[Rfam]
RNA sequence: GCCCUGGAAAGAAGCUGCUUCAAGUCCAGGCCUGGGACUUGCCUGGGAACCCUGGGGUGCCUGGGGAACUGCCACUUUGCUUUUCUGGGGC
Numbered sequence: 001g002c003c004c005u006g007g008a009a010a011g012a013a014g015c016u017g018c019u020u021c022a023a024g025u026c027c028a029g030g031c032c033u034g035g036g037a038c039u040u041g042c043c044u045g046g047g048a049a050c051c052c053u054g055g056g057g058u059g060c061c062u063g064g065g066g067a068a069c070u071g072c073c074a075c076u077u078u079g080c081u082u083u084u085c086u087g088g089g090g091c
Stems, first nucleotide, its partner, number of pairs: 001091008
Record summary
Shown here is a 91-nucleotide RNA sequence from Pelusios castaneus, a member of the family "Z6 small nucleolar RNA". The family has 7 seed sequences and 212 matches in Rfam 15.1.